[Rfam]
RNA: MIR7502 microRNA precursor family
RNA sequence: UAUUAAAAAUUUCAUCUAUUUUUACCAUUAAAAACUAAUCUUUGUACGUCAACAUGAGGUACAGGUGACAUGCCAUGUGUCAUUAUCCGGUUAUUCCAUAAGCCACACUAGUUUUUAAUAGUACAGAUGGAUGAAAUUUUUAACA
Numbered sequence: 001u002a003u004u005a006a007a008a009a010u011u012u013c014a015u016c017u018a019u020u021u022u023u024a025c026c027a028u029u030a031a032a033a034a035c036u037a038a039u040c041u042u043u044g045u046a047c048g049u050c051a052a053c054a055u056g057a058g059g060u061a062c063a064g065g066u067g068a069c070a071u072g073c074c075a076u077g078u079g080u081c082a083u084u085a086u087c088c089g090g091u092u093a094u095u096c097c098a099u100a101a102g103c104c105a106c107a108c109u110a111g112u113u114u115u116u117a118a119u120a121g122u123a124c125a126g127a128u129g130g131a132u133g134a135a136a137u138u139u140u141u142a143a144c145a
Base pairs, nucleotide, nucleotide: 003143004142005141006140007139008138009137010136011135012134013133014132015131016130018128019127020126021125023123024122025121028118029117030116031115032114033113
Dot-bracket structure: ..((((((((((((((.((((.(((..((((((...............................................................................))))))..))).)))).))))))))))))))..